[Rfam]
RNA sequence: AGGAUAGGUAGAGGUUGCAAUAUCUAUUAGUAGUAUUGUAGAGGUGAGUACGAUGAAACAAUAUGAAAGGAGAUAUUGCCGAAGCAUAUAGCCUAAACUCAAGGGCUAUAUGACUGGUUAUACGUAGAAUAUGCGUAUAACUGUCACAAAUUUAUAUUUGUGGAGAGCUAUCAUUCAA
Numbered sequence: 001a002g003g004a005u006a007g008g009u010a011g012a013g014g015u016u017g018c019a020a021u022a023u024c025u026a027u028u029a030g031u032a033g034u035a036u037u038g039u040a041g042a043g044g045u046g047a048g049u050a051c052g053a054u055g056a057a058a059c060a061a062u063a064u065g066a067a068a069g070g071a072g073a074u075a076u077u078g079c080c081g082a083a084g085c086a087u088a089u090a091g092c093c094u095a096a097a098c099u100c101a102a103g104g105g106c107u108a109u110a111u112g113a114c115u116g117g118u119u120a121u122a123c124g125u126a127g128a129a130u131a132u133g134c135g136u137a138u139a140a141c142u143g144u145c146a147c148a149a150a151u152u153u154a155u156a157u158u159u160g161u162g163g164a165g166a167g168c169u170a171u172c173a174u175u176c177a178a
Stems, first nucleotide, its partner, number of pairs: 007172005017079009033064007083115002085112010116142011144163007